[Rfam]
RNA sequence: GGAUGAAGUUUUUGCGUAGGCGUUGUGCACAGUUUAAUAAAUAUUGUGUAUUCCCUCUAGGCAUAAACUUUUAUU
Numbered sequence: 001g002g003a004u005g006a007a008g009u010u011u012u013u014g015c016g017u018a019g020g021c022g023u024u025g026u027g028c029a030c031a032g033u034u035u036a037a038u039a040a041a042u043a044u045u046g047u048g049u050a051u052u053c054c055c056u057c058u059a060g061g062c063a064u065a066a067a068c069u070u071u072u073a074u075u
Stems, first nucleotide, its partner, number of pairs: 005071003009067002013063003017059001019057002022054001025051009
Rfam assigns this 75-nucleotide sequence from Lottia gigantea to the family "mir-242_2 microRNA precursor family". A search with the family's covariance model found it, with a score of 58 bits. Rfam 15.1 lists 16 matches to the family in 13 species. Lineage of the source: Eukaryota > Spiralia > Gastropoda > Lottioidea > Lottia.